[Rfam]
Rfam assigns this 78-nucleotide RNA from Coregonus sp. 'balchen' to the family "mir-27 microRNA precursor family".
RNA sequence: GCCAGGUGCUGAGCUUAGUUGACUAGUGAACACGGAGUGUUUUCAAUUUGUUCACAGUGGUUAAGUUCUUCACCUGAA
Numbered sequence: 001g002c003c004a005g006g007u008g009c010u011g012a013g014c015u016u017a018g019u020u021g022a023c024u025a026g027u028g029a030a031c032a033c034g035g036a037g038u039g040u041u042u043u044c045a046a047u048u049u050g051u052u053c054a055c056a057g058u059g060g061u062u063a064a065g066u067u068c069u070u071c072a073c074c075u076g077a078a
Stems, first nucleotide, its partner, number of pairs: 011068010026055007

Description:
Its family is annotated with RISC complex and miRNA-mediated post-transcriptional gene silencing in the Gene Ontology.